[Rfam]
RNA sequence: GUGGGCUACGGUGACAUGGUCCCUAAGACCUACGUCGGUAUGUUCGUGGGUGCCUUGUGUGCGUUGGCAGGUGUGUUAACUAUUGCCCUGCCCGUGCCUGUCAUCGUAUCGAAC
Numbered sequence: 001g002u003g004g005g006c007u008a009c010g011g012u013g014a015c016a017u018g019g020u021c022c023c024u025a026a027g028a029c030c031u032a033c034g035u036c037g038g039u040a041u042g043u044u045c046g047u048g049g050g051u052g053c054c055u056u057g058u059g060u061g062c063g064u065u066g067g068c069a070g071g072u073g074u075g076u077u078a079a080c081u082a083u084u085g086c087c088c089u090g091c092c093c094g095u096g097c098c099u100g101u102c103a104u105c106g107u108a109u110c111g112a113a114c
Stems, first nucleotide, its partner, number of pairs: 001114002005110001007108005013102004018097001021094001037077004050062002